A member of the RNA family "Mammalian CPEB3 ribozyme" from Alligator sinensis, 74 nucleotides long.
RNA sequence: AGUGCUAGAUAAGCCAUAACAGAAGCGCUCAUGGCAUGGCCCUGUCAGAUUCCAAUGAAUCUGCGACUUCUGCU
Numbered sequence: 001a002g003u004g005c006u007a008g009a010u011a012a013g014c015c016a017u018a019a020c021a022g023a024a025g026c027g028c029u030c031a032u033g034g035c036a037u038g039g040c041c042c043u044g045u046c047a048g049a050u051u052c053c054a055a056u057g058a059a060u061c062u063g064c065g066a067c068u069u070c071u072g073c074u
Base pairs, nucleotide, nucleotide: 013040014039015038018074020072021071022070023069024068025037027035046063047062048061049060050059051058052057